[Rfam]
RNA: MIR8706 microRNA precursor family
Nucleotides: 101
Stems, first nucleotide, its partner, number of pairs: 002100002005097002008094012021081016040058001042056006
Number, partner (000 for none) and nucleotide at each position: 001000a002100u003099u004000u005097a006096a007000g008094u009093u010092g011091a012090g013089u014088u015087u016086u017085a018084g019083g020000a021081u022080u023079g024078a025077u026076u027075u028074g029073a030072u031071g032070a033069a034068a035067g036066u037000a038000a039000a040058u041000u042056g043055c044054u045053a046052a047051u048000a049000u050000u051047a052046u053045u054044a055043g056042c057000u058040a059000a060000u061000u062000a063000u064000g065000a066036a067035u068034u069033u070032u071031u072030a073029u074028u075027a076026a077025a078024u079023c080022a081021a082000c083019u084018c085017u086016g087015a088014a089013a090012c091011u092010c093009g094008a095000a096006u097005u098000c099003a100002a101000c